[Rfam]
RNA sequence: CCUGCACUUGGACAGAAAGACCCUAUGAAGCUUUACUGUAGCCUGGAAUUGGGUCCGGGCUUCGCUUGCGCAGGAUAGGUGGGAGGCGAUGAACCUGCCCUCGUGGGGGCAGGGGAGCCAUCGGUGAGAUACCACUCUGGCGAAGCUAGGAUUCUAACCUAGACCCGUCAACCGGGAUAGGAACAGUUUCAGGUGGGCAGUUUGACUGGGGCGGUCGCCUCCUAAAAGGUAACGGAGGCGCGCAAAGGUUCCCUCAGGCUGGUUGGAAAUCAGCCGUAGAGUGUAAAGGCAAAAGGGAGCUUGACUGUAAGAGUGACAACUCAAGCAGGGACGAAAGUCGGCCUUAGUGAUCCGACGGCACUGAGUGGAAGGGCCGUCGCUCAACGGAUAAAAGUUACUCUAGGGAUAACAGGCUGAUCUCCCCCAAGAGUCCACAUCGACGGGGAGGUUUGGCACCUCGAUGUCGGCUCAUCGCAACCUGGGGCGGAAGUACGUCCCAAGGGUUGGGCUGUUCGCCCAUUAAAGCGGUACGUGAGCUGGGUUCAGAACGUCGUGAGACAGUUCGGUCCAUAUCCGGUGCAGGCGUA
Numbered sequence: 001c002c003u004g005c006a007c008u009u010g011g012a013c014a015g016a017a018a019g020a021c022c023c024u025a026u027g028a029a030g031c032u033u034u035a036c037u038g039u040a041g042c043c044u045g046g047a048a049u050u051g052g053g054u055c056c057g058g059g060c061u062u063c064g065c066u067u068g069c070g071c072a073g074g075a076u077a078g079g080u081g082g083g084a085g086g087c088g089a090u091g092a093a094c095c096u097g098c099c100c101u102c103g104u105g106g107g108g109g110c111a112g113g114g115g116a117g118c119c120a121u122c123g124g125u126g127a128g129a130u131a132c133c134a135c136u137c138u139g140g141c142g143a144a145g146c147u148a149g150g151a152u153u154c155u156a157a158c159c160u161a162g163a164c165c166c167g168u169c170a171a172c173c174g175g176g177a178u179a180g181g182a183a184c185a186g187u188u189u190c191a192g193g194u195g196g197g198c199a200g201u202u203u204g205a206c207u208g209g210g211g212c213g214g215u216c217g218c219c220u221c222c223u224a225a226a227a228g229g230u231a232a233c234g235g236a237g238g239c240g241c242g243c244a245a246a247g248g249u250u251c252c253c254u255c256a257g258g259c260u261g262g263u264u265g266g267a268a269a270u271c272a273g274c275c276g277u278a279g280a281g282u283g284u285a286a287a288g289g290c291a292a293a294a295g296g297g298a299g300c301u302u303g304a305c306u307g308u309a310a311g312a313g314u315g316a317c318a319a320c321u322c323a324a325g326c327a328g329g330g331a332c333g334a335a336a337g338u339c340g341g342c343c344u345u346a347g348u349g350a351u352c353c354g355a356c357g358g359c360a361c362u363g364a365g366u367g368g369a370a371g372g373g374c375c376g377u378c379g380c381u382c383a384a385c386g387g388a389u390a391a392a393a394g395u396u397a398c399u400c401u402a403g404g405g406a407u408a409a410c411a412g413g414c415u416g417a418u419c420u421c422c423c424c425c426a427a428g429a430g431u432c433c434a435c436a437u438c439g440a441c442g443g444g445g446a447g448g449u450u451u452g453g454c455a456c457c458u459c460g461a462u463g464u465c466g467g468c469u470c471a472u473c474g475c476a477a478c479c480u481g482g483g484g485c486g487g488a489a490g491u492a493c494g495u496c497c498c499a500a501g502g503g504u505u506g507g508g509c510u511g512u513u514c515g516c517c518c519a520u521u522a523a524a525g526c527g528g529u530a531c532g533u534g535a536g537c538u539g540g541g542u543u544c545a546g547a548a549c550g551u552c553g554u555g556a557g558a559c560a561g562u563u564c565g566g567u568c569c570a571u572a573u574c575c576g577g578u579g580c581a582g583g584c585g586u587a
Stems, first nucleotide, its partner, number of pairs: 001583008010575003015569001022404004027400002029396005035201004042193007051154006058147009068137001078136005085119003094113008158181003162178001164176004204216004217239006240385001242342002248300006254280002257275006281290002305328004311322003330339003353379007361372002413454003417451001418448007428438002465540001466538004470532001471529005478503002481498006505519005546564004550559003
Background
A member of the RNA family "Bacterial large subunit ribosomal RNA" from Coleofasciculus chthonoplastes, 587 nucleotides of a longer RNA. NCBI's taxonomy places the organism under Bacteria, Cyanophyceae, Coleofasciculales, Coleofasciculus, Coleofasciculus chthonoplastes. Rfam 15.1 lists 51,934 matches to the family in 10,816 species.